[Rfam]
RNA sequence: CUGAGUUCGUUUUCAAUCGAUGUAUCGAUUGAUGAUGGACUUCAUCAUUUUGUUUAAUUUCAGGCAGCGGCCAGACAACCGUAGAGAUGGUUUCCACAGAUGAACAGUUUUUACCAUAUGUUUGUCUACUAAAUUCUAUCUCACAUCA
Numbered sequence: 001c002u003g004a005g006u007u008c009g010u011u012u013u014c015a016a017u018c019g020a021u022g023u024a025u026c027g028a029u030u031g032a033u034g035a036u037g038g039a040c041u042u043c044a045u046c047a048u049u050u051u052g053u054u055u056a057a058u059u060u061c062a063g064g065c066a067g068c069g070g071c072c073a074g075a076c077a078a079c080c081g082u083a084g085a086g087a088u089g090g091u092u093u094c095c096a097c098a099g100a101u102g103a104a105c106a107g108u109u110u111u112u113a114c115c116a117u118a119u120g121u122u123u124g125u126c127u128a129c130u131a132a133a134u135u136c137u138a139u140c141u142c143a144c145a146u147c148a
Stems, first nucleotide, its partner, number of pairs: 002044003005040007013032007084142007103123002105120002

The family of this 148-nucleotide RNA from Mikania micrantha is "small nucleolar RNA snoR143". By type it is an H/ACA-box small nucleolar RNA.